Background: This 102-nucleotide sequence from Paenibacillus sp. 598K belongs to the Rfam family "Purine riboswitch aptamer". Pairs were carried over by alignment from the consensus structure, which is taken from published work.
[Rfam]
RNA sequence: AUUUAGAGGUUGAAGAUGUCUCGUAUAUCAUCGGGAAUACGGCCCGAUCGUCUCUACCCGAGAACCAUAAAUUUUCGGACUACGAGCCUGGAAUAGGAAGAG
Numbered sequence: 001a002u003u004u005a006g007a008g009g010u011u012g013a014a015g016a017u018g019u020c021u022c023g024u025a026u027a028u029c030a031u032c033g034g035g036a037a038u039a040c041g042g043c044c045c046g047a048u049c050g051u052c053u054c055u056a057c058c059c060g061a062g063a064a065c066c067a068u069a070a071a072u073u074u075u076c077g078g079a080c081u082a083c084g085a086g087c088c089u090g091g092a093a094u095a096g097g098a099a100g101a102g
Base pairs, nucleotide, nucleotide: 018088020086021085022084023083024082025081030048031047032046033045034044035043058078059077060076061075062074063073064072
Dot-bracket structure: .................(.((((((....((((((.......)))))).........(((((((.......)))))))..)))))).)..............